[Rfam]
RNA: U11 spliceosomal RNA
RNA sequence: AAAAAAGGCUUCUGUUGUGAGUGGCACUCGUAGAGCAGCCUGAUGGCUCUACGUGCAGAAUUGACAUCCAGAGAUUUCGGAAGCGUAAUUUUUGGUACUUGGGAAGCUGGUGAUCGUUGGUCUGGCGCCGCA
Dot-bracket structure: .......((((((((((....)))))(.((((((((.(.....).)))))))).)(.(((((..........))))).)))))).................((..(((((..(((...)))))))).))...